[Rfam]
RNA sequence: CCGUUCUUGUGUUAUUUGCUGAAUUAGCAUUAUCAUUCAGUGAUUGUCAAACAGAACGCAAAGCAAAUGCCAGACCAUCCACGUUGUUGAGGCUAUCUACUCCAAGGCUUUUACAAUACUAAUCACUGGCUACAUCA
Dot-bracket structure: .((((((..((....(((((((..............)))))))....))...))))))........................(((((..((.(............).))...)))))....................

A member of the RNA family "Small nucleolar RNA psi18S-1377" from Drosophila navojoa, 137 nucleotides long. Rfam links the family to the GO terms nucleolus and RNA processing. The family's consensus secondary structure was predicted with RNAalifold. The family has 15 seed sequences and 113 matches in Rfam 15.1. Taxonomically the source falls in mojavensis species complex (Eukaryota, Opisthokonta, Insecta, Neoptera). It scores 103 bits against the family's covariance model. Rfam classes the family as an H/ACA-box small nucleolar RNA. Rfam describes the family as follows. psi18S-1377 is a member of the H/ACA class of snoRNA. This family is responsible for guiding the modification of uridines 1377 and 1279 to pseudouridine in Drosophila 18S rRNA.